[Rfam]
Nucleotides: 253
Stems, first nucleotide, its partner, number of pairs: 007232004016075001018073002087102006117152005189224005195218003199212004235251005
Number, partner (000 for none) and nucleotide at each position: 001000u002000g003000c004000u005000c006000c007232g008231g009230u010229g011000c012000c013000u014000c015000c016075g017000a018073c019072g020000a021000c022000u023000g024000a025000a026000a027000g028000a029000c030000a031000a032000a033000g034000a035000a036000c037000u038000c039000c040000g041000g042000g043000g044000a045000a046000a047000a048000c049000a050000c051000c052000c053000c054000c055000a056000c057000c058000g059000a060000a061000c062000c063000c064000g065000a066000c067000c068000c069000u070000c071000c072019c073018g074000c075016c076000c077000g078000u079000g080000g081000c082000c083000g084000u085000a086000c087102u088101c089100a090099c091098u092097c093000g094000g095000g096000c097092g098091g099090g100089u101088g102087a103000a104000c105000a106000u107000c108000g109000c110000c111000g112000g113000u114000c115000c116000g117152g118151c119150u120149g121148g122000a123000u124000u125000u126000u127000c128000g129000g130000g131000u132000c133000g134000c135000c136000g137000a138000g139000g140000c141000c142000c143000g144000a145000c146000g147000c148121u149120c150119a151118g152117c153000g154000c155000a156000a157000c158000g159000a160000a161000c162000g163000c164000a165000c166000c167000a168000c169000c170000a171000c172000a173000a174000c175000c176000g177000c178000u179000g180000a181000c182000a183000u184000g185000a186000g187000a188000c189224g190223g191222c192221c193220c194000c195218c196217g197216c198000c199212g200211g201210g202209a203000c204000g205000g206000c207000a208000a209202u210201c211200c212199c213000g214000c215000u216197g217196c218195g219000a220193g221192g222191g223190c224189c225000u226000g227000a228000c229010c230009a231008c232007c233000g234000a235251g236250g237249a238248a239247g240000a241000g242000a243000a244000g245000a246000g247239c248238u249237u250236c251235c252000c253000g